[Rfam]
RNA sequence: AACCCUUGGCAAUGGGCAAAGAGACACCUUGUUGAUGCUGGUGUUCUUAUAUCAGUCAGGGGCAGAGUAGAUGGCAGUCCUUUGUUCAUCCUAGCCUGAUGCCUGGCUUGGUGGCCAAAGCUGUCUUACGCCUAGGACACAUAA
Numbered sequence: 001a002a003c004c005c006u007u008g009g010c011a012a013u014g015g016g017c018a019a020a021g022a023g024a025c026a027c028c029u030u031g032u033u034g035a036u037g038c039u040g041g042u043g044u045u046c047u048u049a050u051a052u053c054a055g056u057c058a059g060g061g062g063c064a065g066a067g068u069a070g071a072u073g074g075c076a077g078u079c080c081u082u083u084g085u086u087c088a089u090c091c092u093a094g095c096c097u098g099a100u101g102c103c104u105g106g107c108u109u110g111g112u113g114g115c116c117a118a119a120g121c122u123g124u125c126u127u128a129c130g131c132c133u134a135g136g137a138c139a140c141a142u143a144a
Base pairs, nucleotide, nucleotide: 003062004061005060006059007058008057013054014053015052019048020047021046023042025040026039028037083139084138085137086136087135098132100130104128105127106126109123110122112120

Notes
The record is a 144-nucleotide sequence from Mus spicilegus, which matches "Small nucleolar RNA SNORA48" in Rfam. A reference for the family is Ofengand and Bakin (1997), "Mapping to nucleotide resolution of pseudouridine residues in large subunit ribosomal RNAs from representative eukaryotes, prokaryotes, archaebacteria, mitochondria and chloroplasts", J Mol Biol. The snoRNA ACA 48 has been identified to guide pseudouridylation of the residue U3797 in the 28S rRNA subunit. The base pairs follow the family's consensus structure, which was predicted with RNAalifold. The organism belongs to Mus, within Eukaryota.